Rfam assigns this 81-nucleotide RNA from Sphingomonas montanisoli to the family "ZMP/ZTP riboswitch aptamer (pfl RNA motif)". The family's consensus secondary structure is taken from published work.
RNA sequence: CCUCGUCCGCGUGACUGGCGAGAAAGGUGGGGCACCACCGGGGAGCGCGGACGUCAGACGCCGCUCGCCUGGGCAUCCAAC
Number, nucleotide and partner (000 for none) at each position: 001c000002c000003u000004c053005g052006u051007c050008c049009g048010c047011g046012u045013g000014a000015c042016u041017g069018g068019c067020g066021a065022g000023a000024a000025a000026g000027g038028u037029g036030g035031g000032g000033c000034a000035c030036c029037a028038c027039c000040g000041g016042g015043g000044a000045g012046c011047g010048c009049g008050g007051a006052c005053g004054u000055c000056a000057g000058a076059c000060g074061c073062c072063g000064c000065u021066c020067g019068c018069c017070u000071g000072g062073g061074c060075a000076u058077c000078c000079a000080a000081c000
The organism belongs to Sphingomonas, within Bacteria.